[Rfam]
RNA: Small nucleolar RNA Z247
Organism: Miscanthus lutarioriparius
RNA sequence: AAGCUUGAGGACGAGGAACUUGUGUCCUACAUCGUCACUGGAUUGGAUCUGGAGUUCAAUCCUGUGGUCUCCGCAAUCACUGCUCGGGUUGAACCCAUCUCGGUGGGGCAACUCUAUACCCAACUUGUUAGUUUUGAGC
Numbered sequence: 001a002a003g004c005u006u007g008a009g010g011a012c013g014a015g016g017a018a019c020u021u022g023u024g025u026c027c028u029a030c031a032u033c034g035u036c037a038c039u040g041g042a043u044u045g046g047a048u049c050u051g052g053a054g055u056u057c058a059a060u061c062c063u064g065u066g067g068u069c070u071c072c073g074c075a076a077u078c079a080c081u082g083c084u085c086g087g088g089u090u091g092a093a094c095c096c097a098u099c100u101c102g103g104u105g106g107g108g109c110a111a112c113u114c115u116a117u118a119c120c121c122a123a124c125u126u127g128u129u130a131g132u133u134u135u136g137a138g139c
Stems, first nucleotide, its partner, number of pairs: 004138005094107005